[Rfam]
RNA sequence: GCUAUCUUGUCGGAGUGCUCUAUAUGGGCUGAGACCACGAAAGAAAGUGGGAUCCGUUGAACCUGAUCAGGCUAAUACCUGCGUAAGGGAAGCAAGUGAGAACUUGGC
Numbered sequence: 001g002c003u004a005u006c007u008u009g010u011c012g013g014a015g016u017g018c019u020c021u022a023u024a025u026g027g028g029c030u031g032a033g034a035c036c037a038c039g040a041a042a043g044a045a046a047g048u049g050g051g052a053u054c055c056g057u058u059g060a061a062c063c064u065g066a067u068c069a070g071g072c073u074a075a076u077a078c079c080u081g082c083g084u085a086a087g088g089g090a091a092g093c094a095a096g097u098g099a100g101a102a103c104u105u106g107g108c
Base pairs, nucleotide, nucleotide: 006096007095008094009093010092011056012055013054014053016050017029018028019027020026036049037048038047062088063087064086068081069080070079071078
Dot-bracket structure: .....(((((((((.(((((.....))))......(((........))))..)))).....(((...((((......))))....)))...)))))............
The record is a 108-nucleotide RNA from Oceanisphaera arctica, which matches "TPP riboswitch aptamer (THI element)" in Rfam. The organism belongs to Oceanisphaera, within Bacteria.